Annotation:
The family of this 150-nucleotide sequence from Nocardioides sp. CF8 is "ALIL pseudoknot". The source organism's lineage runs through Bacteria, Actinomycetota, Actinomycetes, Propionibacteriales and Nocardioides. It scores 57 bits against the family's covariance model. Its family is annotated with positive regulation of translational frameshifting in the Gene Ontology.

RNA sequence: GGCUUUUUUCGCCGCAGCGGAGCUCGACCGCAAGAUCAAGUAGCUGUUCCGACUGCGGUGCUGGUCGACUACAUCGAUCAGCACCGCGACAGGCUCGGGGUCGAGCCGAUCUGCACCGUGUUGAAGGACGCUGGUGUCCAGAUCGCCCCG
Numbered sequence: 001g002g003c004u005u006u007u008u009u010c011g012c013c014g015c016a017g018c019g020g021a022g023c024u025c026g027a028c029c030g031c032a033a034g035a036u037c038a039a040g041u042a043g044c045u046g047u048u049c050c051g052a053c054u055g056c057g058g059u060g061c062u063g064g065u066c067g068a069c070u071a072c073a074u075c076g077a078u079c080a081g082c083a084c085c086g087c088g089a090c091a092g093g094c095u096c097g098g099g100g101u102c103g104a105g106c107c108g109a110u111c112u113g114c115a116c117c118g119u120g121u122u123g124a125a126g127g128a129c130g131c132u133g134g135u136g137u138c139c140a141g142a143u144c145g146c147c148c149c150g
Base pairs, nucleotide, nucleotide: 018051019050020049021048022047023046096150097149098148099147100146107145108144110142111141112140113139115137116136